[Rfam]
RNA: c-di-AMP riboswitch aptamer (ydaO/yuaA leader)
RNA sequence: AAACAAAUUGUGCCGAAUCUCUAAAAUGAGUACGGGGGAUUAAUUAUCUUGGGGUGAAUCUUCUAUAAUAAGAAGUAGGGUGACUCUCAACCCGAACCCGUCAACUAACCUCGGAGGCAAAAUGGAGGGAUAAU
Dot-bracket structure: ..........((((....((........))..(((((.....(......).(((.....((((........))))..((((........))))...))).........)))))..))))...............
Numbered sequence: 001a002a003a004c005a006a007a008u009u010g011u012g013c014c015g016a017a018u019c020u021c022u023a024a025a026a027u028g029a030g031u032a033c034g035g036g037g038g039a040u041u042a043a044u045u046a047u048c049u050u051g052g053g054g055u056g057a058a059u060c061u062u063c064u065a066u067a068a069u070a071a072g073a074a075g076u077a078g079g080g081u082g083a084c085u086c087u088c089a090a091c092c093c094g095a096a097c098c099c100g101u102c103a104a105c106u107a108a109c110c111u112c113g114g115a116g117g118c119a120a121a122a123u124g125g126a127g128g129g130a131u132a133a134u
Stems, first nucleotide, its partner, number of pairs: 011119004019030002033113005043050001052099003060075004078093004